[Rfam]
Nucleotides: 064
Stems, first nucleotide, its partner, number of pairs: 006032005013024004039059003043055002
Number, partner (000 for none) and nucleotide at each position: 001000c002000u003000u004000g005000g006032a007031c008030c009029c010028g011000g012000c013024c014023c015022u016021g017000u018000u019000c020000g021016c022015a023014g024013g025000c026000g027000a028010c029009g030008g031007g032006u033000g034000g035000c036000u037000a038000u039059c040058c041057c042000c043055g044054c045000c046000g047000c048000c049000g050000a051000u052000c053000c054044g055043c056000u057041g058040g059039g060000a061000a062000a063000c064000u